Rfam assigns this 352-nucleotide part of an RNA from Candidatus Omnitrophus magneticus to the family "Bacterial small subunit ribosomal RNA". It scores 1516 bits against the family's covariance model. Pairs were carried over by alignment from the consensus structure, which is taken from published work. Its Rfam clan is "SSU clan".
[Rfam]
RNA sequence: GGUGUAAAGGACAUGUAGGCGUUCUAUUAAGUCGGGUGUGAAAUCCCAUAGCUCAACUAUGGAACUGCGCUCGAUACUGUUAGAAUUGAGUACGGGAGAGGUAAGCGGAAUUCCGGAAGUAAGGGUGAAAUCUGUAGAUAUCCGGAGGAACACCAUUAGCGAAGGCGGCUUACUGGCCCGAUACUGACGCUGAAAUGUGAAAGCUAGGGGAGCAAACAGGAUUAGAUACCCUGGUAGUCCUAGCUGUAAACGAUGGACACUGGAUGCUGGCCUUAAUAAGGGCGGUGUCGAAGCUAACGCGUUAAGUGUCCCACCUGGGGACUACGGCCGCAAGACUAAAACUCAAAGGAAU
Dot-bracket structure: (((.....(.((((.(.(((.(((((.(.(((((((((((.....((((((.....))))))...)))))))))..))).)))))...(((.((((...((((((((...(((((((....(((......))).......)))))))...)....(..((....))))))))))..))))..)))...))))..))))....((((((...((...((((.........))))...))))))))..........((((((..(((((((.((((...)))).)))))))...((....)).....)))))))))).(((......((.(....).))....)))........